This 100-nucleotide RNA sequence from Natronolimnohabitans innermongolicus belongs to the Rfam family "L4-Archaeoglobi ribosomal protein leades".
By type it is a cis-regulatory leader.
RNA sequence: CUGAAGGGCGCGUCCGGGUCAAUUGCGGCUUGCAACACCCGAUCUCCCUCAACACGCCUCCGGAUAUGGAGGUCUCCGAGGGGGAGCGCGUGACCGUCAG
Numbered sequence: 001c002u003g004a005a006g007g008g009c010g011c012g013u014c015c016g017g018g019u020c021a022a023u024u025g026c027g028g029c030u031u032g033c034a035a036c037a038c039c040c041g042a043u044c045u046c047c048c049u050c051a052a053c054a055c056g057c058c059u060c061c062g063g064a065u066a067u068g069g070a071g072g073u074c075u076c077c078g079a080g081g082g083g084g085a086g087c088g089c090g091u092g093a094c095c096g097u098c099a100g
Stems, first nucleotide, its partner, number of pairs: 001100004008091006015041004023035005043085005053080001055078002

NCBI's taxonomy places the organism under Archaea, Halobacteria, Halobacteriales, Natrialbaceae, Natronolimnohabitans innermongolicus. Rfam's curators put it in the seed alignment.